[Rfam]
RNA sequence: GCCCUGUGGUUGCUGGGGGCUGUUGUUCAGGUACAGCACUCCAGUGGGUACAAUGGGCCACAGCAAUCCUGUGAUUUUUGCAUGGCAUCUGUGUUUCCUCAGCAGCUGCCAUAGCCCGGUCACUGGUACAUGG
Number, nucleotide and partner (000 for none) at each position: 001g058002c057003c056004c055005u000006g000007u050008g049009g000010u047011u046012g045013c044014u043015g042016g041017g040018g000019g037020c036021u035022g034023u033024u000025g000026u000027u000028c000029a000030g000031g000032u000033a023034c022035a021036g020037c019038a000039c000040u017041c016042c015043a014044g013045u012046g011047g010048g000049u008050a007051c000052a000053a000054u000055g004056g003057g002058c001059c000060a000061c000062a000063g000064c000065a000066a000067u000068c000069c125070u000071g123072u122073g121074a120075u119076u118077u000078u000079u000080g115081c114082a112083u111084g110085g109086c000087a107088u000089c105090u104091g103092u102093g000094u000095u000096u000097c000098c000099u000100c000101a000102g092103c091104a090105g089106c000107u087108g000109c085110c084111a083112u082113a000114g081115c080116c000117c000118g076119g075120u074121c073122a072123c071124u000125g069126g000127u000128a000129c000130a000131u000132g000133g000
Rfam assigns this 133-nucleotide RNA from Cavia porcellus to the family "Small nucleolar RNA SNORA84".
Rfam links the family to the GO terms nucleolus and RNA processing.
On this family, see Marker et al., Curr Biol 2002: "Experimental RNomics: identification of 140 candidates for small non-messenger RNAs in the plant Arabidopsis thaliana".
The family's consensus secondary structure was predicted with WAR.
It is one of the family's seed sequences.